[Rfam]
Nucleotides: 110
Stems, first nucleotide, its partner, number of pairs: 002109007013043005021032003026081004044073004049069002051065004077102001082099006
Number, partner (000 for none) and nucleotide at each position: 001000g002109u003108g004107u005106u006105a007104u008103c009000a010000a011000g012000a013043a014042a015041g016040g017039u018000a019000g020000a021032g022031g023030g024000a025000u026081u027080a028079g029078a030023c031022c032021c033000g034000u035000u036000g037000a038000g039017g040016c041015c042014u043013u044073g045072g046071c047070a048000a049069c050068c051065c052064u053063u054062u055000a056000u057000c058000u059000u060000u061000u062054a063053a064052a065051g066000a067000a068050g069049g070047u071046g072045c073044u074000a075000a076000a077102u078029u079028c080027u081026a082099c083098u084097a085096a086095u087094a088000c089000a090000a091000a092000c093000g094087u095086a096085u097084u098083g099082g100000a101000a102077a103008g104007a105006u106005a107004a108003c109002g110000a